A member of the RNA family "mir-210 microRNA precursor family" from Candidula unifasciata, 98 nucleotides long. Taxonomically the source falls in Candidula (Eukaryota, Eumetazoa, Protostomia, Heterobranchia).
[Rfam]
RNA sequence: CAUUUUGGCAGGGCAGCCUUUGUCAAACUACACAAAAAUAACAACAAUGUUUUUUGUGUAGUUUGACAAAGGCUGCCCUGCCAAAAUGUUAUGUUAUU
Numbered sequence: 001c002a003u004u005u006u007g008g009c010a011g012g013g014c015a016g017c018c019u020u021u022g023u024c025a026a027a028c029u030a031c032a033c034a035a036a037a038a039u040a041a042c043a044a045c046a047a048u049g050u051u052u053u054u055u056g057u058g059u060a061g062u063u064u065g066a067c068a069a070a071g072g073c074u075g076c077c078c079u080g081c082c083a084a085a086a087u088g089u090u091a092u093g094u095u096a097u098u
Stems, first nucleotide, its partner, number of pairs: 005084008015074008024065001025063002029060006036053002